The family of this 96-nucleotide RNA sequence from Peptostreptococcaceae bacterium pGA-8 is "THF (Tetrahydrofolate) riboswitch aptamer".
Lineage of the source: Bacteria > Bacillota > Clostridia > Peptostreptococcales > Peptostreptococcaceae.
Tetrahydrofolate (THF) riboswitch was first reported for Ames et al. as an RNA motif in 5' untranslated (5'-UTR)regions of folate transport and biosynthesis genes in Firmicutes genomes.
A reference for the family is Ames et al. (2010), "A eubacterial riboswitch class that senses the coenzyme tetrahydrofolate", Chem Biol.
Rfam 15.1 lists 747 matches to the family in 747 species.
RNA sequence: GGUAGAGUAAAUAUUGUGCGUUAAGUGUCGUAGGAUGGGAUGUUGCCUGCGAACGAAAACCAUAUUAGGUUGCGGUGCAAUAUUGCGUCCACUACU
Numbered sequence: 001g002g003u004a005g006a007g008u009a010a011a012u013a014u015u016g017u018g019c020g021u022u023a024a025g026u027g028u029c030g031u032a033g034g035a036u037g038g039g040a041u042g043u044u045g046c047c048u049g050c051g052a053a054c055g056a057a058a059a060c061c062a063u064a065u066u067a068g069g070u071u072g073c074g075g076u077g078c079a080a081u082a083u084u085g086c087g088u089c090c091a092c093u094a095c096u
Stems, first nucleotide, its partner, number of pairs: 001096005010084009019074003025054002028052007038090005058071004